[Rfam]
RNA sequence: AAAACUACCCAAACACAAGCACUGACUGAGUUGUGUAGUUGUGUAUGCAAGUGCUACUUGUUGGGGUAGUUUUG
Dot-bracket structure: ...(((((((..(((..((((((..(....................)..))))))...)))..)))))))....